[Rfam]
RNA sequence: GGAGACACAGGGAGGGAUCCCAAUCCAGCCUUAUGAAAAGAAGCCUGCCAAGGGGUCUUGGAGAUUGGCGACCAUCCUAAUGACUUA
Numbered sequence: 001g002g003a004g005a006c007a008c009a010g011g012g013a014g015g016g017a018u019c020c021c022a023a024u025c026c027a028g029c030c031u032u033a034u035g036a037a038a039a040g041a042a043g044c045c046u047g048c049c050a051a052g053g054g055g056u057c058u059u060g061g062a063g064a065u066u067g068g069c070g071a072c073c074a075u076c077c078u079a080a081u082g083a084c085u086u087a
Base pairs, nucleotide, nucleotide: 002086003085004084006082007081010078011077012076013075015073016072018070020068021067022066023065024064025063029061030060038059039058040057041056044053045052046051
About this RNA:
The family of this 87-nucleotide RNA from Equus asinus is "mir-9014 microRNA precursor family". The family's consensus secondary structure was predicted with RNAalifold. The organism belongs to Equus, within Eukaryota.